[Rfam]
RNA sequence: UUUGCUUCUGAUUGUCCAAACGCAAUUCUUGUCCAGGAAACAUAGAAACCAAGAAUUGUGUCUGGACAUCUGGGGCUGA
Numbered sequence: 001u002u003u004g005c006u007u008c009u010g011a012u013u014g015u016c017c018a019a020a021c022g023c024a025a026u027u028c029u030u031g032u033c034c035a036g037g038a039a040a041c042a043u044a045g046a047a048a049c050c051a052a053g054a055a056u057u058g059u060g061u062c063u064g065g066a067c068a069u070c071u072g073g074g075g076c077u078g079a
Stems, first nucleotide, its partner, number of pairs: 002078001004076004010070003014067005021060011